[Rfam]
RNA sequence: GCGACGGAAAACCGAAUUCGGAAAGGCAUCUUUCUUAUCAUGUAUAAAGCCGUCGGUUCGCGCGGGUCGCGGGUCAGCCGCGUCCUCUGG
Numbered sequence: 001g002c003g004a005c006g007g008a009a010a011a012c013c014g015a016a017u018u019c020g021g022a023a024a025g026g027c028a029u030c031u032u033u034c035u036u037a038u039c040a041u042g043u044a045u046a047a048a049g050c051c052g053u054c055g056g057u058u059c060g061c062g063c064g065g066g067u068c069g070c071g072g073g074u075c076a077g078c079c080g081c082g083u084c085c086u087c088u089g090g
Stems, first nucleotide, its partner, number of pairs: 002056001003054005016045002019042001020039001023035001025033002061089002064086003068082001070080003